[Rfam]
The family of this 126-nucleotide RNA sequence from Anaerostipes sp. 992a is "azaaromatic riboswitch aptamer (yjdF RNA)".
RNA sequence: AUAUGCAAAGAUAAAAACGCAAUGUACAUUGUAAAUGUACUAGAGCUGGUAGGUAGCCCAGCCGUCCUACAUUAUAUAGGGUAAGUAACCUGCCCCUCCGGGUUGUCCAUUCUUUGCAAAUCAAUU
Numbered sequence: 001a002u003a004u005g006c007a008a009a010g011a012u013a014a015a016a017a018c019g020c021a022a023u024g025u026a027c028a029u030u031g032u033a034a035a036u037g038u039a040c041u042a043g044a045g046c047u048g049g050u051a052g053g054u055a056g057c058c059c060a061g062c063c064g065u066c067c068u069a070c071a072u073u074a075u076a077u078a079g080g081g082u083a084a085g086u087a088a089c090c091u092g093c094c095c096c097u098c099c100g101g102g103u104u105g106u107c108c109a110u111u112c113u114u115u116g117c118a119a120a121u122c123a124a125u126u
Stems, first nucleotide, its partner, number of pairs: 004118008045062005064082006092103004